The family of this 42-nucleotide RNA from Thalictrum thalictroides is "Plastid-ccsA-ndhD-2 3UTR RNA".
Lineage of the source: Eukaryota > Embryophyta > Euphyllophyta > Ranunculales > Thalictrum.

RNA sequence: UUUUAAGAACCGUUUGAAUCAAGUAGUGAUUCAAACGGUUCU
Number, nucleotide and partner (000 for none) at each position: 001u000002u000003u000004u000005a000006a042007g041008a040009a039010c038011c037012g036013u035014u034015u033016g032017a031018a030019u029020c028021a027022a000023g000024u000025a000026g000027u021028g020029a019030u018031u017032c016033a015034a014035a013036c012037g011038g010039u009040u008041c007042u006
For this family Rfam cites "Retrograde signaling in plants: A critical review focusing on the GUN pathway and beyond" (Richter et al., Plant Commun, 2023). It is one of the family's seed sequences.